[Rfam]
Purine riboswitch aptamer: a 103-nucleotide sequence from Paenibacillus montaniterrae. The base pairs follow the family's consensus structure, which is taken from published work. Riboswitches are metabolite binding domains within certain messenger RNAs that serve as precision sensors for their corresponding targets.
RNA sequence: CAAAAUCAGACAUACACUACUCGUAUAAUUUUGGGAAUAUGGCCCAUAAGUUUCUACUGGCGACCACUGUAAUCAGCCAACUAUGAGUGAAUGACGAUCUAUA
Numbered sequence: 001c002a003a004a005a006u007c008a009g010a011c012a013u014a015c016a017c018u019a020c021u022c023g024u025a026u027a028a029u030u031u032u033g034g035g036a037a038u039a040u041g042g043c044c045c046a047u048a049a050g051u052u053u054c055u056a057c058u059g060g061c062g063a064c065c066a067c068u069g070u071a072a073u074c075a076g077c078c079a080a081c082u083a084u085g086a087g088u089g090a091a092u093g094a095c096g097a098u099c100u101a102u103a
Stems, first nucleotide, its partner, number of pairs: 018089008029049002032046004058079004062074002